[Rfam]
RNA sequence: UCUCGGGCGGCGAUUCUUUAGAGGGAUGCACUUUUUGUUGACUUGAAAGAAAGAAGGUGCGUCUCUUUAGAGGAUUACUGUUUGAGA
Numbered sequence: 001u002c003u004c005g006g007g008c009g010g011c012g013a014u015u016c017u018u019u020a021g022a023g024g025g026a027u028g029c030a031c032u033u034u035u036u037g038u039u040g041a042c043u044u045g046a047a048a049g050a051a052a053g054a055a056g057g058u059g060c061g062u063c064u065c066u067u068u069a070g071a072g073g074a075u076u077a078c079u080g081u082u083u084g085a086g087a
Stems, first nucleotide, its partner, number of pairs: 001087005007081004012076003016072003020068016038052002

This 87-nucleotide RNA from Callithrix jacchus belongs to the Rfam family "mir-515 microRNA precursor family". Rfam links the family to the GO terms RISC complex and miRNA-mediated post-transcriptional gene silencing. The family is grouped with related families in Rfam's "mir-290 clan". For this family Rfam cites "Identification of hundreds of conserved and nonconserved human microRNAs" (Bentwich et al., Nat Genet, 2005).